[Rfam]
RNA sequence: GCAUGGAUGAAUUCUGCACCAGCUUUCCUCAGUAGCUGAUGCAGUCAGACACCAUGCCAGAGCAAAUUCCCUUUUUCCCCACUGUGCCUGGUGUGCUUUUUGAUGGGAUUGGGCAUGCCCUUGGAAGGGGAAUACAU
Numbered sequence: 001g002c003a004u005g006g007a008u009g010a011a012u013u014c015u016g017c018a019c020c021a022g023c024u025u026u027c028c029u030c031a032g033u034a035g036c037u038g039a040u041g042c043a044g045u046c047a048g049a050c051a052c053c054a055u056g057c058c059a060g061a062g063c064a065a066a067u068u069c070c071c072u073u074u075u076u077c078c079c080c081a082c083u084g085u086g087c088c089u090g091g092u093g094u095g096c097u098u099u100u101u102g103a104u105g106g107g108a109u110u111g112g113g114c115a116u117g118c119c120c121u122u123g124g125a126a127g128g129g130g131a132a133u134a135c136a137u
Stems, first nucleotide, its partner, number of pairs: 001057006014044005068131002070128006090119009
The family of this 137-nucleotide RNA sequence from Catharus fuscescens is "Small nucleolar RNA SNORA15". Rfam classes the family as an H/ACA-box small nucleolar RNA. From the family's description: ACA15 is a member of the H/ACA class of snoRNA that guide the sites of modification of uridines to pseudouridines. The match comes from Rfam's covariance-model search (66 bits).